The family of this 208-nucleotide RNA from Oryza nivara is "MIR812 microRNA precursor family". The source organism's lineage runs through Eukaryota, Viridiplantae, Magnoliopsida, Oryzoideae and Oryza.
RNA sequence: AAUAGGUGUAGUUUUACACUAUUUACGUUCAAUGUUUGACCGCUCGUCUUAUUUGAAAAUUUUUUAUGAUUAGUAUUUUUGUUGCUAUCAGAUGAUAAAACAUGAAUAGUACUUUAUGUGUGACUAAAUAUUUUCAAAUUUUUCACAAAUUUUUUAAAUAAGAUGGACGGUCAAACGUUAGGUACGGAUAUCUACGACUGCACUUAUU
Numbered sequence: 001a002a003u004a005g006g007u008g009u010a011g012u013u014u015u016a017c018a019c020u021a022u023u024u025a026c027g028u029u030c031a032a033u034g035u036u037u038g039a040c041c042g043c044u045c046g047u048c049u050u051a052u053u054u055g056a057a058a059a060u061u062u063u064u065u066a067u068g069a070u071u072a073g074u075a076u077u078u079u080u081g082u083u084g085c086u087a088u089c090a091g092a093u094g095a096u097a098a099a100a101c102a103u104g105a106a107u108a109g110u111a112c113u114u115u116a117u118g119u120g121u122g123a124c125u126a127a128a129u130a131u132u133u134u135c136a137a138a139u140u141u142u143u144c145a146c147a148a149a150u151u152u153u154u155u156a157a158a159u160a161a162g163a164u165g166g167a168c169g170g171u172c173a174a175a176c177g178u179u180a181g182g183u184a185c186g187g188a189u190a191u192c193u194a195c196g197a198c199u200g201c202a203c204u205u206a207u208u
Base pairs, nucleotide, nucleotide: 028182029181031179032178033177035175036174037173038172039171040170041169042168044166045165046164047163048162049161050160051159052158